[Rfam]
RNA sequence: GUAGUCCCAAGGCCGAGUCCUCGCGCCGCCCGGUGCGAGGAGCGGGGGACCCAAAGACCGCCAGCGGUCAAGGGGCGAAUCGCCGCCCGAGCGCGGCGUAGCGCCACUUCCAGCGCGAGCCCGACAGCUAACCCCGUAGGCCGCAACAGGAAGGGGG
Numbered sequence: 001g002u003a004g005u006c007c008c009a010a011g012g013c014c015g016a017g018u019c020c021u022c023g024c025g026c027c028g029c030c031c032g033g034u035g036c037g038a039g040g041a042g043c044g045g046g047g048g049a050c051c052c053a054a055a056g057a058c059c060g061c062c063a064g065c066g067g068u069c070a071a072g073g074g075g076c077g078a079a080u081c082g083c084c085g086c087c088c089g090a091g092c093g094c095g096g097c098g099u100a101g102c103g104c105c106a107c108u109u110c111c112a113g114c115g116c117g118a119g120c121c122c123g124a125c126a127g128c129u130a131a132c133c134c135c136g137u138a139g140g141c142c143g144c145a146a147c148a149g150g151a152a153g154g155g156g157g
Base pairs, nucleotide, nucleotide: 011142012141013140014139018041019040020039021038022037023036024035025034026033027032042137043136044135045134046133047132052072073122074121075120081098082097083096084095101116102115103114104113
Background: c-di-AMP riboswitch aptamer (ydaO/yuaA leader): a 157-nucleotide sequence from bacterium HR41. The family has 106 seed sequences and 7,607 matches in Rfam 15.1. A search with the family's covariance model found it, with a score of 61 bits.